Shown here is a 105-nucleotide sequence from Falsibacillus albus, a member of the family "SAM riboswitch aptamer (S box leader)". A search with the family's covariance model found it, with a score of 80 bits. The organism belongs to Falsibacillus, within Bacteria.
RNA sequence: UUCUUAUCAAGAGAGACGGAGGGACUGGCCCUGUGAUGUCUCGGCAGCGGACUCAAUGUAGAGUGCUGUGCCAAUUCCAGCAAGCGAAAACUUGAUCGAUAAGGA
Numbered sequence: 001u002u003c004u005u006a007u008c009a010a011g012a013g014a015g016a017c018g019g020a021g022g023g024a025c026u027g028g029c030c031c032u033g034u035g036a037u038g039u040c041u042c043g044g045c046a047g048c049g050g051a052c053u054c055a056a057u058g059u060a061g062a063g064u065g066c067u068g069u070g071c072c073a074a075u076u077c078c079a080g081c082a083a084g085c086g087a088a089a090a091c092u093u094g095a096u097c098g099a100u101a102a103g104g105a
Stems, first nucleotide, its partner, number of pairs: 001105008013042005021031003025080004043072004048068002051064004081094004